A member of the RNA family "Fluoride riboswitch aptamer (crcB RNA motif)" from Mycobacterium heidelbergense, 61 nucleotides long.
[Rfam]
RNA sequence: CCCUGACAAGGCGAUGAAGCUCGCCUUAACCGCCGAACCGGCUGAUGGCUUCUACCCGUGG
Numbered sequence: 001c002c003c004u005g006a007c008a009a010g011g012c013g014a015u016g017a018a019g020c021u022c023g024c025c026u027u028a029a030c031c032g033c034c035g036a037a038c039c040g041g042c043u044g045a046u047g048g049c050u051u052c053u054a055c056c057c058g059u060g061g
Stems, first nucleotide, its partner, number of pairs: 010025004016052006032042003
Lineage of the source: Bacteria > Bacillati > Actinomycetota > Actinomycetes > Mycobacterium simiae complex.